[Rfam]
RNA sequence: GAAUUCUCAAUCACCUUGUCAGGUUUAGCCAAAGUCAAACAUAAACUGAACUUUGGCACUCCGCUGAUUUGGUGAUAGAGUUUUU
Numbered sequence: 001g002a003a004u005u006c007u008c009a010a011u012c013a014c015c016u017u018g019u020c021a022g023g024u025u026u027a028g029c030c031a032a033a034g035u036c037a038a039a040c041a042u043a044a045a046c047u048g049a050a051c052u053u054u055g056g057c058a059c060u061c062c063g064c065u066g067a068u069u070u071g072g073u074g075a076u077a078g079a080g081u082u083u084u085u
Stems, first nucleotide, its partner, number of pairs: 001085003007079002010076006018068003026058001028057008
This 85-nucleotide sequence from Caenorhabditis remanei belongs to the Rfam family "mir-791 microRNA precursor family".
Its family is annotated with RISC complex and miRNA-mediated post-transcriptional gene silencing in the Gene Ontology.
The base pairs follow the family's consensus structure, which was predicted with RNAalifold.
Lineage of the source: Eukaryota > Ecdysozoa > Rhabditina > Rhabditoidea > Caenorhabditis.
A reference for the family is Ruby et al. (2006), "Large-scale sequencing reveals 21U-RNAs and additional microRNAs and endogenous siRNAs in C. elegans", Cell.